[Rfam]
RNA sequence: CAACGCGCUCCGGGGUCAGUGAGAUUCUGAACCGGCGGUAUAGUCCGCGACCCGCCUGUGAACCGCGAUCAUCAUGAUCGCGGCGCGCAGUCGGCUGAACUGGUGUGAUUCCAGUACCGACGGUGAAAGUCCGGAUGGGAGGCAGCGCGUGC
Numbered sequence: 001c002a003a004c005g006c007g008c009u010c011c012g013g014g015g016u017c018a019g020u021g022a023g024a025u026u027c028u029g030a031a032c033c034g035g036c037g038g039u040a041u042a043g044u045c046c047g048c049g050a051c052c053c054g055c056c057u058g059u060g061a062a063c064c065g066c067g068a069u070c071a072u073c074a075u076g077a078u079c080g081c082g083g084c085g086c087g088c089a090g091u092c093g094g095c096u097g098a099a100c101u102g103g104u105g106u107g108a109u110u111c112c113a114g115u116a117c118c119g120a121c122g123g124u125g126a127a128a129g130u131c132c133g134g135a136u137g138g139g140a141g142g143c144a145g146c147g148c149g150u151g152c
Base pairs, nucleotide, nucleotide: 003150004149005148006147007146008145009144010141017029018028019027031130032129033119034118035048036047037046038045043117044116052094053093099115100114101113102112103111121133122132123131
The family of this 152-nucleotide RNA from Frondihabitans sp. Leaf304 is "FMN riboswitch aptamer (RFN element)". The family's consensus secondary structure is taken from published work. Rfam's curators write: The RFN element is a highly conserved domain that is found frequently in the 5'-untranslated regions of prokaryotic mRNAs that encode for flavin mononucleotide (FMN) biosynthesis and transport proteins. This element is a metabolite-dependent riboswitch that directly binds FMN in the absence of proteins. In Bacillus subtilis, the riboswitch most likely controls gene expression by causing premature transcription termination within the 5' untranslated region of the ribDEAHT operon and precluding access to the ribosome-binding site of ypaA mRNA.The FMN riboswitch structure, reported in present an FMN-bound six-stem junction, adopts a butterfly-like scaffold, stapled together by opposingly directed but nearly identically folded peripheral domains. The match comes from Rfam's covariance-model search (88 bits). Rfam links the family to the GO term FMN binding.